[Rfam]
RNA sequence: AGAUCCUUUAAUUCAGUCCCGCGAGGCUGACAAGGAUGUCCGGGUAUAGCUGGGUGUGCUUUGGACGCUUGCACGUGUUUCUCGUGUCUCCAAAGUAAAGGCUAUGGUGGCUUCCUGCAGCAGCAGGAAGCCUUUUUUGUA
Numbered sequence: 001a002g003a004u005c006c007u008u009u010a011a012u013u014c015a016g017u018c019c020c021g022c023g024a025g026g027c028u029g030a031c032a033a034g035g036a037u038g039u040c041c042g043g044g045u046a047u048a049g050c051u052g053g054g055u056g057u058g059c060u061u062u063g064g065a066c067g068c069u070u071g072c073a074c075g076u077g078u079u080u081c082u083c084g085u086g087u088c089u090c091c092a093a094a095g096u097a098a099a100g101g102c103u104a105u106g107g108u109g110g111c112u113u114c115c116u117g118c119a120g121c122a123g124c125a126g127g128a129a130g131c132c133u134u135u136u137u138u139g140u141a
Base pairs, nucleotide, nucleotide: 003037004036005035006034007033008032013030014029015028016027017026018025057097058096059095060094061093062092063091064090065089106135107134109132110131111130112129113128114127115126116125117124118123
RNA: PyrR binding site